[Rfam]
RNA sequence: CUUACAGAGUUUAUUGGCAUUCUGUCCACCUCCACCACAUGAAACCCCUCUCUCUCUAUCUCUCUCUCUCUCGUUUUCUUUAAUGGAGGUGGGCAUCCUGCCAAUCAAGCUCUGUUGG
Numbered sequence: 001c002u003u004a005c006a007g008a009g010u011u012u013a014u015u016g017g018c019a020u021u022c023u024g025u026c027c028a029c030c031u032c033c034a035c036c037a038c039a040u041g042a043a044a045c046c047c048c049u050c051u052c053u054c055u056c057u058a059u060c061u062c063u064c065u066c067u068c069u070c071u072c073g074u075u076u077u078c079u080u081u082a083a084u085g086g087a088g089g090u091g092g093g094c095a096u097c098c099u100g101c102c103a104a105u106c107a108a109g110c111u112c113u114g115u116u117g118g
Base pairs, nucleotide, nucleotide: 011108014104015103016102017101018100019099023095024094025093026092027091028090029089030088031087032086033085

Rfam assigns this 118-nucleotide sequence from Nelumbo nucifera to the family "MIR394 microRNA precursor family". Rfam 15.1 lists 724 matches to the family in 216 species. The organism belongs to Nelumbo, within Eukaryota. The literature on the family includes a 2004 paper in Mol Cell by Jones-Rhoades and Bartel, "Computational identification of plant microRNAs and their targets, including a stress-induced miRNA". A search with the family's covariance model found it, with a score of 86 bits.